[Rfam]
RNA: permuted transfer-messenger RNA
Organism: Holospora elegans
RNA sequence: AACGAUAAACACUAUAAGCAGUAGACGUUGCGGACCCGGGGGCAGAGCCCGGCGCCUCCACCUUAUGAGAUGGAUAUUCUUUUUAUGUGGGGGCGAAUUAGGAUCGACGUGCGUUGAACCGUAUAGCUUUCGUUCACCAUGGUACCGGUGUUUCGGGCCAAAAACAUAAAUGCGAACUUUAAUAACGCAUUUGGCAAAGUAUUCGUGAAGAAUGUUGCAAACAACAGUCUUUCGGGUCGUGUAAGGUAUGCUGUAGCAGCUUAG
Numbered sequence: 001a002a003c004g005a006u007a008a009a010c011a012c013u014a015u016a017a018g019c020a021g022u023a024g025a026c027g028u029u030g031c032g033g034a035c036c037c038g039g040g041g042g043c044a045g046a047g048c049c050c051g052g053c054g055c056c057u058c059c060a061c062c063u064u065a066u067g068a069g070a071u072g073g074a075u076a077u078u079c080u081u082u083u084u085a086u087g088u089g090g091g092g093g094c095g096a097a098u099u100a101g102g103a104u105c106g107a108c109g110u111g112c113g114u115u116g117a118a119c120c121g122u123a124u125a126g127c128u129u130u131c132g133u134u135c136a137c138c139a140u141g142g143u144a145c146c147g148g149u150g151u152u153u154c155g156g157g158c159c160a161a162a163a164a165c166a167u168a169a170a171u172g173c174g175a176a177c178u179u180u181a182a183u184a185a186c187g188c189a190u191u192u193g194g195c196a197a198a199g200u201a202u203u204c205g206u207g208a209a210g211a212a213u214g215u216u217g218c219a220a221a222c223a224a225c226a227g228u229c230u231u232u233c234g235g236g237u238c239g240u241g242u243a244a245g246g247u248a249u250g251c252u253g254u255a256g257c258a259g260c261u262u263a264g
Base pairs, nucleotide, nucleotide: 001134002133003132004131005130014124015123016122026113027112028111030110031109032108036052037051038050039049040048053095054094055093056092057091058090059089135150136149137148138147